[Rfam]
RNA sequence: AAUUCUAUUCAUAAGAACAAAGAGAAGGAUAUUUAUUUUAUACUCGAUAAGUACCAAUACGCAAUGGGG
Numbered sequence: 001a002a003u004u005c006u007a008u009u010c011a012u013a014a015g016a017a018c019a020a021a022g023a024g025a026a027g028g029a030u031a032u033u034u035a036u037u038u039u040a041u042a043c044u045c046g047a048u049a050a051g052u053a054c055c056a057a058u059a060c061g062c063a064a065u066g067g068g069g
Stems, first nucleotide, its partner, number of pairs: 003022002006019001008017003043068003051060003
The record is a 69-nucleotide RNA from Handroanthus impetiginosus, which matches "Plastid-clpP 5UTR RNA" in Rfam. A reference for the family is Richter et al. (2023), "Retrograde signaling in plants: A critical review focusing on the GUN pathway and beyond", Plant Commun. The match comes from Rfam's covariance-model search (86 bits). About the family: Plastid clpP is a non-coding RNA (ncRNA) recognised in plastids. It was found in the prime untranslated region (5UTR) of a protease complex subunit (clpP) in plastids, suggesting a posible cis-regulatory function. By type it is a cis-regulatory element. The base pairs follow the family's consensus structure, which was predicted with LocARNA.